[Rfam]
Shown here is a 106-nucleotide RNA from Paenibacillus sp. UNCCL117, a member of the family "TPP riboswitch aptamer (THI element)".
A search with the family's covariance model found it, with a score of 76 bits.
The source organism's lineage runs through Bacteria, Bacillati, Bacilli, Paenibacillaceae and Paenibacillus.
Gene Ontology term of the family: thiamine pyrophosphate binding.
RNA sequence: GGGUGUCACUAGGGGAGCCUGACGGCUGAGAUUGGAUCUGCGAGAUCCUAGACCCUCUGAACCUGAUCUGGGUGAUGCCAGCGUAGGGAAGUGGAGAGCGUAGACA
Numbered sequence: 001g002g003g004u005g006u007c008a009c010u011a012g013g014g015g016a017g018c019c020u021g022a023c024g025g026c027u028g029a030g031a032u033u034g035g036a037u038c039u040g041c042g043a044g045a046u047c048c049u050a051g052a053c054c055c056u057c058u059g060a061a062c063c064u065g066a067u068c069u070g071g072g073u074g075a076u077g078c079c080a081g082c083g084u085a086g087g088g089a090a091g092u093g094g095a096g097a098g099c100g101u102a103g104a105c106a
Base pairs, nucleotide, nucleotide: 006094007093008092009091010090011056012055013054014053017026018025019024034048035047036046037045038044039043062087063086064085065084068081069080070079071078